[Rfam]
Nucleotides: 091
Stems, first nucleotide, its partner, number of pairs: 006086001009083005020030003032071003035067002039065001041063001045058004
Number, partner (000 for none) and nucleotide at each position: 001000c002000g003000a004000g005000g006086a007000a008000a009083c010082u011081c012080u013079g014000g015000a016000g017000a018000a019000u020030c021029u022028c023000u024000u025000u026000a027000u028022g029021a030020g031000u032071g033070c034069c035067g036066a037000a038000g039065g040000u041063g042000c043000a044000a045058g046057g047056c048055u049000g050000g051000a052000a053000a054000c055048g056047g057046c058045u059000c060000a061000a062000u063041c064000u065039c066036u067035c068000a069034g070033g071032c072000a073000a074000a075000c076000g077000g078000a079013c080012a081011g082010a083009g084000c085000g086006u087000a088000c089000a090000c091000a